Rfam assigns this 85-nucleotide RNA sequence to the family "skipping-rope RNA".
[Rfam]
RNA sequence: AAGUGCAGAGGAUGGAACGGGCAGCCAUCGCCGGAUAGCCGCAAGAUUGAAUAGAGAUGCAGGAACUGUCAACCUACCUGUAAAA
Dot-bracket structure: ...(((((..(((((....[[[[.))))).((((....)))............)....(.(((...]]]]..))).))))))...
Numbered sequence: 001a002a003g004u005g006c007a008g009a010g011g012a013u014g015g016a017a018c019g020g021g022c023a024g025c026c027a028u029c030g031c032c033g034g035a036u037a038g039c040c041g042c043a044a045g046a047u048u049g050a051a052u053a054g055a056g057a058u059g060c061a062g063g064a065a066c067u068g069u070c071a072a073c074c075u076a077c078c079u080g081u082a083a084a085a
Stems, first nucleotide, its partner, number of pairs: 004082005011029005020070004031054001032041003059077001061075003